About this RNA: The family of this 101-nucleotide sequence from Prochlorococcus marinus is "Cyanobacterial functional RNA 13".
RNA sequence: GAGGCCAAACCUCAAUGAGUUGAAUAUAUGUUUAACUCCAAGACAUAGAUUGAUUACGUAUAGUAGUGUAUUCAAUUUAAUAACCCUUCUGGUAGUGGGAA
Numbered sequence: 001g002a003g004g005c006c007a008a009a010c011c012u013c014a015a016u017g018a019g020u021u022g023a024a025u026a027u028a029u030g031u032u033u034a035a036c037u038c039c040a041a042g043a044c045a046u047a048g049a050u051u052g053a054u055u056a057c058g059u060a061u062a063g064u065a066g067u068g069u070a071u072u073c074a075a076u077u078u079a080a081u082a083a084c085c086c087u088u089c090u091g092g093u094a095g096u097g098g099g100a101a
Stems, first nucleotide, its partner, number of pairs: 001013004017038008046079008055070002084099003
The organism belongs to Prochlorococcus marinus subsp. pastoris, within Bacteria.
It is one of the family's seed sequences.
For this family Rfam cites "The challenge of regulation in a minimal photoautotroph: non-coding RNAs in Prochlorococcus" (Steglich et al., PLoS Genet, 2008).
By type it is a small RNA.